[Rfam]
RNA: Bacterial large subunit ribosomal RNA, nucleotides 2612 to 2876
Organism: Methylophilales bacterium HTCC2181
RNA sequence: GGAAGUUUGAAGGGGGCUGUUCCUAGUACGAGAGGACCGGAAUGGACAGAUCUCUGGUGGAUCGGUUGUCACGCCAGUGGCAUAGCCGAGUAGCUAAAUCUGGAAGAGAUAAACGCUGAAAGCAUCUAAGCGUGAAACUUGCCCUAAGAUGAGACUUCCCUUGUACUUUAAGUACACUAAAGAGUCGUUCAAGACCAGGACGUUGAUAGGUCAGGUGUGGAAGUGCAGUAAUGCAUGAAGCUAACUGAUACUAAUUGCUCGUGAG
Numbered sequence: 001g002g003a004a005g006u007u008u009g010a011a012g013g014g015g016g017c018u019g020u021u022c023c024u025a026g027u028a029c030g031a032g033a034g035g036a037c038c039g040g041a042a043u044g045g046a047c048a049g050a051u052c053u054c055u056g057g058u059g060g061a062u063c064g065g066u067u068g069u070c071a072c073g074c075c076a077g078u079g080g081c082a083u084a085g086c087c088g089a090g091u092a093g094c095u096a097a098a099u100c101u102g103g104a105a106g107a108g109a110u111a112a113a114c115g116c117u118g119a120a121a122g123c124a125u126c127u128a129a130g131c132g133u134g135a136a137a138c139u140u141g142c143c144c145u146a147a148g149a150u151g152a153g154a155c156u157u158c159c160c161u162u163g164u165a166c167u168u169u170a171a172g173u174a175c176a177c178u179a180a181a182g183a184g185u186c187g188u189u190c191a192a193g194a195c196c197a198g199g200a201c202g203u204u205g206a207u208a209g210g211u212c213a214g215g216u217g218u219g220g221a222a223g224u225g226c227a228g229u230a231a232u233g234c235a236u237g238a239a240g241c242u243a244a245c246u247g248a249u250a251c252u253a254a255u256u257g258c259u260c261g262u263g264a265g
Stems, first nucleotide, its partner, number of pairs: 001159008011145004017045007047102005055096003062089005067082006106140003113133005162176005179262001182260004186202005207253003210249005217241001223236005